[Rfam]
RNA sequence: GGAGCUAAACACCUCACAGAAUAGACGAUACGGACCCGGGGGCGGUACCCGGCGCCUCCACCACUACCCAGGCCAUUGAGCACGUGAAUGGCAUUGUGGGGGCGAAACAGGAUCGACGUGCGUAGUAAAAGUCAGGCUUGUUCCCGGUAUGAGUUCGACCGACUAUCAGGCUCAAACACACUAAGUGCCAACGACAAUGUCGCUUGCACCGAAAAUGUCCUUCUCGCCGCCUAA
Numbered sequence: 001g002g003a004g005c006u007a008a009a010c011a012c013c014u015c016a017c018a019g020a021a022u023a024g025a026c027g028a029u030a031c032g033g034a035c036c037c038g039g040g041g042g043c044g045g046u047a048c049c050c051g052g053c054g055c056c057u058c059c060a061c062c063a064c065u066a067c068c069c070a071g072g073c074c075a076u077u078g079a080g081c082a083c084g085u086g087a088a089u090g091g092c093a094u095u096g097u098g099g100g101g102g103c104g105a106a107a108c109a110g111g112a113u114c115g116a117c118g119u120g121c122g123u124a125g126u127a128a129a130a131g132u133c134a135g136g137c138u139u140g141u142u143c144c145c146g147g148u149a150u151g152a153g154u155u156c157g158a159c160c161g162a163c164u165a166u167c168a169g170g171c172u173c174a175a176a177c178a179c180a181c182u183a184a185g186u187g188c189c190a191a192c193g194a195c196a197a198u199g200u201c202g203c204u205u206g207c208a209c210c211g212a213a214a215a216u217g218u219c220c221u222u223c224u225c226g227c228c229g230c231c232u233a234a
Stems, first nucleotide, its partner, number of pairs: 001144005014134001016132002026122002030119003036052005053104009145161004